[Rfam]
RNA: Bacterial small signal recognition particle RNA
RNA sequence: UCUUGGUGCCUCGCAUUGAUAACUUAUUCACCAGGUCAGAUCCGGAAGGAAGCAACCAGAGUAAGCCAAUCAAGUGCCGAGGGUUCGCUGGGGAGC
Numbered sequence: 001u002c003u004u005g006g007u008g009c010c011u012c013g014c015a016u017u018g019a020u021a022a023c024u025u026a027u028u029c030a031c032c033a034g035g036u037c038a039g040a041u042c043c044g045g046a047a048g049g050a051a052g053c054a055a056c057c058a059g060a061g062u063a064a065g066c067c068a069a070u071c072a073a074g075u076g077c078c079g080a081g082g083g084u085u086c087g088c089u090g091g092g093g094a095g096c
Base pairs, nucleotide, nucleotide: 004090005089006088007087008086009082010081011080012079013078014074016073017072018071019070020069023065024064025063026062027061028060032059034057035056036055041050042049043048